[Rfam]
RNA sequence: GAGUGUGUCUGUAUGACGAGUCUAACCCGUUCAUCGGGGGAGGCGUAGGGAAACCGACAUGGCUGCAGGAUGUGGCUUUGCCACGUUCCAGGGCCGCCGUGUUCAAGCGCGGGGAGUCAUACGGUCACGACCCGAAACCGGGCGAUCUACGCGUAGGCAAGGUGAAGCAUGGCGAAAGCUAUGUGGAGGCCUGUUAGAGUUGGUGUCCUACAAUACCCUCUCGUGAUCUACGUGUAGGGGUGAAAGGCCCAUCGAGCCCGGUAACAGCUGGUU
Numbered sequence: 001g002a003g004u005g006u007g008u009c010u011g012u013a014u015g016a017c018g019a020g021u022c023u024a025a026c027c028c029g030u031u032c033a034u035c036g037g038g039g040g041a042g043g044c045g046u047a048g049g050g051a052a053a054c055c056g057a058c059a060u061g062g063c064u065g066c067a068g069g070a071u072g073u074g075g076c077u078u079u080g081c082c083a084c085g086u087u088c089c090a091g092g093g094c095c096g097c098c099g100u101g102u103u104c105a106a107g108c109g110c111g112g113g114g115a116g117u118c119a120u121a122c123g124g125u126c127a128c129g130a131c132c133c134g135a136a137a138c139c140g141g142g143c144g145a146u147c148u149a150c151g152c153g154u155a156g157g158c159a160a161g162g163u164g165a166a167g168c169a170u171g172g173c174g175a176a177a178g179c180u181a182u183g184u185g186g187a188g189g190c191c192u193g194u195u196a197g198a199g200u201u202g203g204u205g206u207c208c209u210a211c212a213a214u215a216c217c218c219u220c221u222c223g224u225g226a227u228c229u230a231c232g233u234g235u236a237g238g239g240g241u242g243a244a245a246g247g248c249c250c251a252u253c254g255a256g257c258c259c260g261g262u263a264a265c266a267g268c269u270g271g272u273u
Stems, first nucleotide, its partner, number of pairs: 005128003009124009020044004026038004048055002061095004068088009098111004131271002134268001138261006147237011158225001160192004167184007197222003202218002205216002239249003
This 273-nucleotide part of an RNA from Halocatena salina belongs to the Rfam family "Archaeal large subunit ribosomal RNA". The match comes from Rfam's covariance-model search (2827 bits). Lineage of the source: Archaea > Methanobacteriati > Halobacteria > Natronomonadaceae > Halocatena.